[Rfam]
RNA: Bacterial RNase P class B
Organism: Salibacterium salarium
RNA sequence: ACAUUCUGGCAGUUGCUGCGCUUAACAGCGUAGAGGAAAGUCCAUGCUCGCACAACCUGAGAGGGUUGUAGUGAUCGUGCCUGACUAAACAAUAAGUCAGGGCGGCCUGGUUUUAGACUGGGCUGAUGGCGGGGAACAGACCUGUGUCUAUUAGAUAUGGUCUUAUUACCCUGAAAGUGCCACAGUGACGUAGUCUGUUUGGAAACGAACAGAGUGGAACGCGGUAAACCCCUCGAGCGAGAAACCCAAACAUUGGUAGGGGCACUUUUCUGAUGGAAUUCAACAGAAGAAAAGGCAGAGAUAAUCUGCAGAUAGAUGACUGCCCCCGGAGUGCAAGGUGAAUAACCGUAGCAGCGCGAAGGGACAGAACAUGGCUUAUAUGA
Numbered sequence: 001a002c003a004u005u006c007u008g009g010c011a012g013u014u015g016c017u018g019c020g021c022u023u024a025a026c027a028g029c030g031u032a033g034a035g036g037a038a039a040g041u042c043c044a045u046g047c048u049c050g051c052a053c054a055a056c057c058u059g060a061g062a063g064g065g066u067u068g069u070a071g072u073g074a075u076c077g078u079g080c081c082u083g084a085c086u087a088a089a090c091a092a093u094a095a096g097u098c099a100g101g102g103c104g105g106c107c108u109g110g111u112u113u114u115a116g117a118c119u120g121g122g123c124u125g126a127u128g129g130c131g132g133g134g135a136a137c138a139g140a141c142c143u144g145u146g147u148c149u150a151u152u153a154g155a156u157a158u159g160g161u162c163u164u165a166u167u168a169c170c171c172u173g174a175a176a177g178u179g180c181c182a183c184a185g186u187g188a189c190g191u192a193g194u195c196u197g198u199u200u201g202g203a204a205a206c207g208a209a210c211a212g213a214g215u216g217g218a219a220c221g222c223g224g225u226a227a228a229c230c231c232c233u234c235g236a237g238c239g240a241g242a243a244a245c246c247c248a249a250a251c252a253u254u255g256g257u258a259g260g261g262g263c264a265c266u267u268u269u270c271u272g273a274u275g276g277a278a279u280u281c282a283a284c285a286g287a288a289g290a291a292a293a294g295g296c297a298g299a300g301a302u303a304a305u306c307u308g309c310a311g312a313u314a315g316a317u318g319a320c321u322g323c324c325c326c327c328g329g330a331g332u333g334c335a336a337g338g339u340g341a342a343u344a345a346c347c348g349u350a351g352c353a354g355c356g357c358g359a360a361g362g363g364a365c366a367g368a369a370c371a372u373g374g375c376u377u378a379u380a381u382g383a
Stems, first nucleotide, its partner, number of pairs: 004383002008324007016033006038377003042374005047241005052069006075236003079232001080101006102127001103125009128231002131171003139162004146156003177229002179225003194213008245261003265294007295309005326362002331357004